[Rfam]
RNA: Group II catalytic intron D1-D4-4
RNA sequence: UUCAUCAUACAAGUCCGGUCACGGGAGGGGCCAAGCCCCCGUGUAGCUAGGAUACCUGCACACGGCGAAAUCUGUGAGUAGAAGCGUAUCGACGAAAGUACCUGCCAGAGACAGGGCGAGCAACAUACCAGGCCGUAACAUGA
Numbered sequence: 001u002u003c004a005u006c007a008u009a010c011a012a013g014u015c016c017g018g019u020c021a022c023g024g025g026a027g028g029g030g031c032c033a034a035g036c037c038c039c040c041g042u043g044u045a046g047c048u049a050g051g052a053u054a055c056c057u058g059c060a061c062a063c064g065g066c067g068a069a070a071u072c073u074g075u076g077a078g079u080a081g082a083a084g085c086g087u088a089u090c091g092a093c094g095a096a097a098g099u100a101c102c103u104g105c106c107a108g109a110g111a112c113a114g115g116g117c118g119a120g121c122a123a124c125a126u127a128c129c130a131g132g133c134c135g136u137a138a139c140a141u142g143a
Stems, first nucleotide, its partner, number of pairs: 020043005051090005056081004061076001065072001098117001101115004120136002